[Rfam]
RNA: mir-236 microRNA precursor family
RNA sequence: GACUCGCGUCUUACCUGUACAGUAUUAGAAGCUCGAUCUGUCUAAUACUGUCAGGUAAUGAUGCUAGUC
Numbered sequence: 001g002a003c004u005c006g007c008g009u010c011u012u013a014c015c016u017g018u019a020c021a022g023u024a025u026u027a028g029a030a031g032c033u034c035g036a037u038c039u040g041u042c043u044a045a046u047a048c049u050g051u052c053a054g055g056u057a058a059u060g061a062u063g064c065u066a067g068u069c
Stems, first nucleotide, its partner, number of pairs: 001069004006064005011058007020050002023047007